[Rfam]
RNA sequence: GGAGCAGUAACGAUGUUACGCAGCUGGGCAGUCGCCCUAAAACAAAGUUGGGCAUCACAAUCGCGGCUUUCCGAU
Numbered sequence: 001g002g003a004g005c006a007g008u009a010a011c012g013a014u015g016u017u018a019c020g021c022a023g024c025u026g027g028g029c030a031g032u033c034g035c036c037c038u039a040a041a042a043c044a045a046a047g048u049u050g051g052g053c054a055u056c057a058c059a060a061u062c063g064c065g066g067c068u069u070u071c072c073g074a075u
Base pairs, nucleotide, nucleotide: 004072006017008015009014020056023053024052026037027036028035029034038050039049040048059069062066
The family of this 75-nucleotide RNA from Thauera propionica is "putative aminoglycoside riboswitch / attI site". Gene Ontology terms of the family: regulation of gene expression and aminoglycoside antibiotic metabolic process. The literature on the family includes a 2013 paper in Cell by Jia et al., "Riboswitch control of aminoglycoside antibiotic resistance". Rfam 15.1 lists 39 matches to the family in 38 species. Conserved RNA structure found upstream of the bacterial aminoglycosides antibiotic-resistant genes: aminoglycoside acetyl transferase (AAC) and aminoglycoside adenyl transferase (AAD). It has putative short open reading frame (ORF) that encode leader peptide upstream of the resistance gene. 75 nucleotide long sequence from the first ribosome binding site (SD1) up to the coding sequence was shown to have the regulatory role, and it was considered the minima functional RNA. Aminoglycosides bind to specific regions of AAC/AAD 5' leader and induce change in the RNA structure. The drug binding induces expression of the resistance protein. The match comes from Rfam's covariance-model search (70 bits).